Rfam assigns this 76-nucleotide sequence from Eleutherodactylus coqui to the family "mir-19 microRNA precursor family".
RNA sequence: CAUUACUGUUAGUUUGGCUGGUUUGCAUCAGCUGAGUAAAGUUGCUGUGCAAAUCCAUGCAAAACUGACAGUGGUG
Numbered sequence: 001c002a003u004u005a006c007u008g009u010u011a012g013u014u015u016g017g018c019u020g021g022u023u024u025g026c027a028u029c030a031g032c033u034g035a036g037u038a039a040a041g042u043u044g045c046u047g048u049g050c051a052a053a054u055c056c057a058u059g060c061a062a063a064a065c066u067g068a069c070a071g072u073g074g075u076g
Base pairs, nucleotide, nucleotide: 003074004073005072006071007070008069009068010067011066012065013064014063015062017060018059020056021055022053023052024051025050026049027048028047030046031045032044
The base pairs follow the family's consensus structure, which was predicted with RNAalifold.
The literature on the family includes a 2003 paper in Dev Cell by Houbaviy et al., "Embryonic stem cell-specific MicroRNAs".
The match comes from Rfam's covariance-model search (69 bits).